Group I catalytic intron: a 313-nucleotide sequence from Yasminevirus saudimassiliense.
The base pairs follow the family's consensus structure, which is taken from published work.
Gene Ontology term of the family: Group I intron splicing.
Taxonomically the source falls in Yasminevirus saudimassiliense (Viruses, Nucleocytoviricota, Mimiviridae, Klosneuvirinae).
On this family, see Cech, Annu Rev Biochem 1990: "Self-splicing of group I introns".

RNA sequence: AUGGUGGCUUGCGAUUGGGUGAACUUUCAGCCCAAGUGAGGGAUAAAACCCUUGCUAGUCUGCGGUGUAGCAGGCAACACAAUUAAAUUCAGGGAAAGCCCUAAGAAGCCUUUAGUCCCAAACUAGUACAGAAAUGUAUUAGUGGCCUCGGGGAAAACUCGAGGGUAUGGGCACAAUCUAAAGGAUUGGGUGAUCCUGAGCCAAGCUCCUAAAUCCGAUAACGGACAUGGAGAAGGUGCAACGACUUAAUAGUUGUGGGCUCUACUGCAAUGUAGAGCUUAAGAUAAAGUCUAGUCCCAUUCGAAAGAAUGUU
Numbered sequence: 001a002u003g004g005u006g007g008c009u010u011g012c013g014a015u016u017g018g019g020u021g022a023a024c025u026u027u028c029a030g031c032c033c034a035a036g037u038g039a040g041g042g043a044u045a046a047a048a049c050c051c052u053u054g055c056u057a058g059u060c061u062g063c064g065g066u067g068u069a070g071c072a073g074g075c076a077a078c079a080c081a082a083u084u085a086a087a088u089u090c091a092g093g094g095a096a097a098g099c100c101c102u103a104a105g106a107a108g109c110c111u112u113u114a115g116u117c118c119c120a121a122a123c124u125a126g127u128a129c130a131g132a133a134a135u136g137u138a139u140u141a142g143u144g145g146c147c148u149c150g151g152g153g154a155a156a157a158c159u160c161g162a163g164g165g166u167a168u169g170g171g172c173a174c175a176a177u178c179u180a181a182a183g184g185a186u187u188g189g190g191u192g193a194u195c196c197u198g199a200g201c202c203a204a205g206c207u208c209c210u211a212a213a214u215c216c217g218a219u220a221a222c223g224g225a226c227a228u229g230g231a232g233a234a235g236g237u238g239c240a241a242c243g244a245c246u247u248a249a250u251a252g253u254u255g256u257g258g259g260c261u262c263u264a265c266u267g268c269a270a271u272g273u274a275g276a277g278c279u280u281a282a283g284a285u286a287a288a289g290u291c292u293a294g295u296c297c298c299a300u301u302c303g304a305a306a307g308a309a310u311g312u313u
Stems, first nucleotide, its partner, number of pairs: 001005001017024001078257005084251002089199006099190003103186001200237002206232004214225004241292001243291005259278007298311005